[Rfam]
RNA: Nitrogen stress-induced RNA 1
RNA sequence: UGAUAGAUGCAUCUUGUUGAUAAACCUCCAGUAGGAGACAACUGGGGGAUUUUUCA
Number, nucleotide and partner (000 for none) at each position: 001u000002g013003a012004u011005a000006g000007a000008u000009g000010c000011a004012u003013c002014u000015u000016g000017u000018u000019g000020a000021u000022a000023a000024a000025c048026c047027u046028c045029c044030a043031g042032u041033a000034g039035g000036a000037g000038a000039c034040a000041a032042c031043u030044g029045g028046g027047g026048g025049a000050u000051u000052u000053u000054u000055c000056a000